[Rfam]
RNA sequence: AAUUUGGAGAGUUUGAUCCUGGCUCAGGACGAACGCUGGCGGCGUGCCUAAUACAUGCAAGUCGAGCGAAAAGAUGUAGGAGCUUUGCACCAACAACUUUUAGCGGCGAACGGGUGAGUAACACGUAAAGAACCUGCCUCAUAGACUGGGACAACUACUGGAAACGGUAGCUAAUACCGGAUAAGAUUAAAAUCGCAUGAAGAAAAAUUAAAAGUCGGAGAAAACUGACACUAUGAGAUGGCUUUGCGCUGCAUUAGCUAGUUGGUAGGGUAAAAGCCUACCAAGGCGACGAUGCAUAGCCGACCUGAGAGGGUGAUCGGCCACACUGGGACUGAGACACGGCCCAGACUCCUACGGGAGGCAGCAGUAGGGAAUCUUCCGCAAUGGACGAAAGUCUGACGGAGCAACGCCGCGUGAGUGAAGAAGGAUUUCGGUUCGUAAAACUCUGUUGUUAGGGAAGAAUGACUGUAUAGUAACUAUAUACAGUAGAGACGGUACCUAACCAGAAAGCCACGGCUAACUACGUGCCAGCAGCCGCGGUAAUACGUAGGUGGCAAGCGUUGUCCGGAAUUAUUG
Numbered sequence: 001a002a003u004u005u006g007g008a009g010a011g012u013u014u015g016a017u018c019c020u021g022g023c024u025c026a027g028g029a030c031g032a033a034c035g036c037u038g039g040c041g042g043c044g045u046g047c048c049u050a051a052u053a054c055a056u057g058c059a060a061g062u063c064g065a066g067c068g069a070a071a072a073g074a075u076g077u078a079g080g081a082g083c084u085u086u087g088c089a090c091c092a093a094c095a096a097c098u099u100u101u102a103g104c105g106g107c108g109a110a111c112g113g114g115u116g117a118g119u120a121a122c123a124c125g126u127a128a129a130g131a132a133c134c135u136g137c138c139u140c141a142u143a144g145a146c147u148g149g150g151a152c153a154a155c156u157a158c159u160g161g162a163a164a165c166g167g168u169a170g171c172u173a174a175u176a177c178c179g180g181a182u183a184a185g186a187u188u189a190a191a192a193u194c195g196c197a198u199g200a201a202g203a204a205a206a207a208u209u210a211a212a213a214g215u216c217g218g219a220g221a222a223a224a225c226u227g228a229c230a231c232u233a234u235g236a237g238a239u240g241g242c243u244u245u246g247c248g249c250u251g252c253a254u255u256a257g258c259u260a261g262u263u264g265g266u267a268g269g270g271u272a273a274a275a276g277c278c279u280a281c282c283a284a285g286g287c288g289a290c291g292a293u294g295c296a297u298a299g300c301c302g303a304c305c306u307g308a309g310a311g312g313g314u315g316a317u318c319g320g321c322c323a324c325a326c327u328g329g330g331a332c333u334g335a336g337a338c339a340c341g342g343c344c345c346a347g348a349c350u351c352c353u354a355c356g357g358g359a360g361g362c363a364g365c366a367g368u369a370g371g372g373a374a375u376c377u378u379c380c381g382c383a384a385u386g387g388a389c390g391a392a393a394g395u396c397u398g399a400c401g402g403a404g405c406a407a408c409g410c411c412g413c414g415u416g417a418g419u420g421a422a423g424a425a426g427g428a429u430u431u432c433g434g435u436u437c438g439u440a441a442a443a444c445u446c447u448g449u450u451g452u453u454a455g456g457g458a459a460g461a462a463u464g465a466c467u468g469u470a471u472a473g474u475a476a477c478u479a480u481a482u483a484c485a486g487u488a489g490a491g492a493c494g495g496u497a498c499c500u501a502a503c504c505a506g507a508a509a510g511c512c513a514c515g516g517c518u519a520a521c522u523a524c525g526u527g528c529c530a531g532c533a534g535c536c537g538c539g540g541u542a543a544u545a546c547g548u549a550g551g552u553g554g555c556a557a558g559c560g561u562u563g564u565c566c567g568g569a570a571u572u573a574u575u576g
Base pairs, nucleotide, nucleotide: 009025010024011023012022013021027566028565029564030563032562033561034560035559036558037557039413040412041411042410043409044408045406046405047371052369053368054367056366057365058364061107062106063105066104067103069100070099114324115323116322124248125247126246127245128244129243130242133241134240138237139236140235141234142233143232144231146180147179148178149177155170156169157168158167159166160165186209188206193200194199214229215228216227217226218225250296251295252294257287258286259285262284263283264282265281266280267279268278269277299321300320301319302318303314304313305312306311326347327346328345329344330343349360350359351358352357377403379402380401381400385398386397387396388395389394416446417445418444419443426437427436428435429434450507451503452502453501454500455499456498460493466486467485468484469483470482471481510555511554512553513552514551521550522549523548524547525546531538532537
RNA: Bacterial small subunit ribosomal RNA, nucleotides 1 to 576